[Rfam]
RNA sequence: CCGAAACAUCAAGAGCAGUCGCCUUUAUGGCGGACUCGCCAACCGAGCAUUAGGAUGUCACGGUGGCCAAGGUACGAUGUGGAAGCAACAUUAUUAUUCACUUCAAAAUUAUCCUAAGUU
Number, nucleotide and partner (000 for none) at each position: 001c000002c000003g000004a000005a000006a080007c079008a078009u077010c076011a000012a000013g000014a000015g037016c000017a036018g035019u034020c033021g000022c000023c000024u000025u000026u000027a000028u000029g000030g000031c000032g000033g020034a019035c018036u017037c015038g067039c066040c065041a000042a000043c063044c062045g061046a000047g058048c057049a000050u116051u000052a000053g113054g112055a000056u000057g048058u047059c000060a000061c045062g044063g043064u000065g040066g039067c038068c000069a000070a000071g000072g000073u000074a000075c000076g010077a009078u008079g007080u006081g000082g104083a103084a102085g101086c000087a000088a000089c000090a000091u000092u000093a000094u000095u000096a000097u000098u000099c000100a000101c085102u084103u083104c082105a000106a000107a000108a000109u000110u000111a000112u054113c053114c000115u000116a050117a000118g000119u000120u000
Rfam assigns this 120-nucleotide sequence from Xylanibacter ruminicola to the family "SAM-I/IV (S-adenosyl methionine) riboswitch aptamer". A search with the family's covariance model found it, with a score of 45 bits.